Shown here is a 135-nucleotide RNA sequence from Tremovirus aetremori, a member of the family "Avian encephalitis virus (AEV) cis-acting replication element (CRE)".
It is annotated as a cis-regulatory element.
NCBI's taxonomy places the organism under Viruses, Orthornavirae, Picornaviridae, Heptrevirinae, Tremovirus aetremori.

[Rfam]
RNA sequence: GCACAAUGUAGUAGGAUAUGGAAGACUGAGUUUGUGGAAGAGAAGAUAUCUGUGGGGUCUAAAACGAAGUACCACAAGUCCCCUUUAUAUGAUUUUUGUCCACAGGAGGUUAUUAAAUGUCCCACUAAGUUGUUC
Numbered sequence: 001g002c003a004c005a006a007u008g009u010a011g012u013a014g015g016a017u018a019u020g021g022a023a024g025a026c027u028g029a030g031u032u033u034g035u036g037g038a039a040g041a042g043a044a045g046a047u048a049u050c051u052g053u054g055g056g057g058u059c060u061a062a063a064a065c066g067a068a069g070u071a072c073c074a075c076a077a078g079u080c081c082c083c084u085u086u087a088u089a090u091g092a093u094u095u096u097u098g099u100c101c102a103c104a105g106g107a108g109g110u111u112a113u114u115a116a117a118u119g120u121c122c123c124a125c126u127a128a129g130u131u132g133u134u135c
Base pairs, nucleotide, nucleotide: 003133004132005131006130007129009127010126011125012124014122015121016120017119018118019117024111025110026109027108031106032105033104034103035102036101037100038099040097041096042095043094044093047091048090049089051087052086054083055082056081057080059078060077